This 75-nucleotide sequence from Orycteropus afer belongs to the Rfam family "Small nucleolar RNA SNORD59". Pairs were carried over by alignment from the consensus structure, which was predicted with ILM. It is annotated as a C/D-box small nucleolar RNA. Rfam 15.1 lists 1,355 matches to the family in 620 species. A search with the family's covariance model found it, with a score of 84 bits. Gene Ontology terms of the family: RNA processing and nucleolus. The source organism's lineage runs through Eukaryota, Vertebrata, Tubulidentata, Orycteropodidae and Orycteropus afer.
RNA sequence: UCUUCUAUGAUGAUUUUAUCACAAUGACUUUCGUUCUUCUGAAUUUGCUGAAGCCACAUUUAAAUUCUGAGAAGG
Numbered sequence: 001u002c003u004u005c006u007a008u009g010a011u012g013a014u015u016u017u018a019u020c021a022c023a024a025u026g027a028c029u030u031u032c033g034u035u036c037u038u039c040u041g042a043a044u045u046u047g048c049u050g051a052a053g054c055c056a057c058a059u060u061u062a063a064a065u066u067c068u069g070a071g072a073a074g075g
Stems, first nucleotide, its partner, number of pairs: 001075003005071001

Its Rfam clan is "SNORD59 clan".